[Rfam]
A member of the RNA family "TPP riboswitch aptamer (THI element)" from Paenalicyclobacillus cellulosilyticus, 111 nucleotides long.

RNA sequence: ACCCCAUCGUACGGGAGCUCGCGGAAGCGGGCUGAGAGGAUAGCUAAUCCGCUAUCGACCGUCGCACCUGAUCUGGGUAAUGCCAGCGAAGGGAACGCACAUGCCAAUGGC
Number, nucleotide and partner (000 for none) at each position: 001a000002c000003c000004c000005c000006a000007u000008c097009g096010u095011a062012c061013g060014g059015g000016a000017g032018c031019u030020c029021g028022c000023g000024g000025a000026a000027g000028c021029g020030g019031g018032c017033u000034g000035a000036g000037a000038g000039g056040a055041u054042a053043g052044c000045u000046a000047a000048u000049c000050c000051g000052c043053u042054a041055u040056c039057g000058a000059c014060c013061g012062u011063c000064g000065c000066a000067c092068c091069u090070g000071a000072u000073c086074u085075g084076g083077g000078u000079a000080a000081u000082g000083c076084c075085a074086g073087c000088g000089a000090a069091g068092g067093g000094a000095a010096c009097g008098c000099a000100c000101a000102u000103g000104c000105c000106a000107a000108u000109g000110g000111c000